[Rfam]
RNA sequence: GUGACAGAAGAGAGUGAGCACAUAUGGCGUUUUCUUGCAUGAUAUAUAUACACAUCCAUGCUUGAAGCUAUACGUGCUCACUUCUCUAUCUGUCAC
Numbered sequence: 001g002u003g004a005c006a007g008a009a010g011a012g013a014g015u016g017a018g019c020a021c022a023u024a025u026g027g028c029g030u031u032u033u034c035u036u037g038c039a040u041g042a043u044a045u046a047u048a049u050a051c052a053c054a055u056c057c058a059u060g061c062u063u064g065a066a067g068c069u070a071u072a073c074g075u076g077c078u079c080a081c082u083u084c085u086c087u088a089u090c091u092g093u094c095a096c
Stems, first nucleotide, its partner, number of pairs: 001096008010086003013082009023072006

Shown here is a 96-nucleotide RNA from Nicotiana sylvestris, a member of the family "mir-156 microRNA precursor family".
A search with the family's covariance model found it, with a score of 83 bits.
Rfam describes the family as follows. This family represents the plant microRNA (miRNA) precursor mir-156.
NCBI's taxonomy places the organism under Eukaryota, Streptophytina, Mesangiospermae, Nicotianoideae, Nicotiana.
A reference for the family is Ambros (2001), "microRNAs: tiny regulators with great potential", Cell.